[Rfam]
RNA sequence: GCACUGUCACAACGGCUUCCUGACGUGACAGGCUGAAUCUCAUAACGGAGCA
Numbered sequence: 001g002c003a004c005u006g007u008c009a010c011a012a013c014g015g016c017u018u019c020c021u022g023a024c025g026u027g028a029c030a031g032g033c034u035g036a037a038u039c040u041c042a043u044a045a046c047g048g049a050g051c052a
Stems, first nucleotide, its partner, number of pairs: 004032002006029005013022002015051003019048002
RNA: SAM/SAH riboswitch aptamer
Organism: Boseongicola aestuarii